[Rfam]
RNA: transfer-messenger RNA
Organism: Actinoplanes auranticolor
RNA sequence: GGGGGUGACUGGUUUCGACUUCGUACGUGGAGACAGGGGAAGCGAGCCGAGGAAGCCGACGUCGUCUCGAGAAUCGGUCGUCGGAAACCAAUAAGCGCCGAUUCCAAUCGCGCUGAGUUCGCUCUCGCCGCCUGAGGCGAGUAGCGACUCUGUCGGGCUGAGAACACCUUCGUCUCAGACUUCCGGCAUCAGCUAGAAGGUUGGCCAACCGGUCCCGGUCGCGGGGACCGCACGGCGAGAUUAAUCAGCGACUGGGCCCGUCACGGCAUCUUGCUCACGUGAAAGCCGGGGCCGAGUAGAGGCAUAGUGAGCUGCGCUCGGAGAAGCCCUGACGAAACAACGAAGGACCCGGGUUCGAUUCCCGGCACCUCCACGG
Numbered sequence: 001g002g003g004g005g006u007g008a009c010u011g012g013u014u015u016c017g018a019c020u021u022c023g024u025a026c027g028u029g030g031a032g033a034c035a036g037g038g039g040a041a042g043c044g045a046g047c048c049g050a051g052g053a054a055g056c057c058g059a060c061g062u063c064g065u066c067u068c069g070a071g072a073a074u075c076g077g078u079c080g081u082c083g084g085a086a087a088c089c090a091a092u093a094a095g096c097g098c099c100g101a102u103u104c105c106a107a108u109c110g111c112g113c114u115g116a117g118u119u120c121g122c123u124c125u126c127g128c129c130g131c132c133u134g135a136g137g138c139g140a141g142u143a144g145c146g147a148c149u150c151u152g153u154c155g156g157g158c159u160g161a162g163a164a165c166a167c168c169u170u171c172g173u174c175u176c177a178g179a180c181u182u183c184c185g186g187c188a189u190c191a192g193c194u195a196g197a198a199g200g201u202u203g204g205c206c207a208a209c210c211g212g213u214c215c216c217g218g219u220c221g222c223g224g225g226g227a228c229c230g231c232a233c234g235g236c237g238a239g240a241u242u243a244a245u246c247a248g249c250g251a252c253u254g255g256g257c258c259c260g261u262c263a264c265g266g267c268a269u270c271u272u273g274c275u276c277a278c279g280u281g282a283a284a285g286c287c288g289g290g291g292c293c294g295a296g297u298a299g300a301g302g303c304a305u306a307g308u309g310a311g312c313u314g315c316g317c318u319c320g321g322a323g324a325a326g327c328c329c330u331g332a333c334g335a336a337a338c339a340a341c342g343a344a345g346g347a348c349c350c351g352g353g354u355u356c357g358a359u360u361c362c363c364g365g366c367a368c369c370u371c372c373a374c375g376g
Base pairs, nucleotide, nucleotide: 001372002371003370004369005368006367007366019345020344021343022342023341024340028336032333034331035330036329037328038327043320044319045318046317047316048069049068050067051066052065056084057083058082059081060080061079128144130142131141151188152187153186154185155184156183158178159177160176161175162174163173166201167200168199169198170197171196204236205235206234210230211229212228217253218252219251220250221249222248255293256292257291258290259289269282270281273312274311275310276309280306349365350364351363352362353361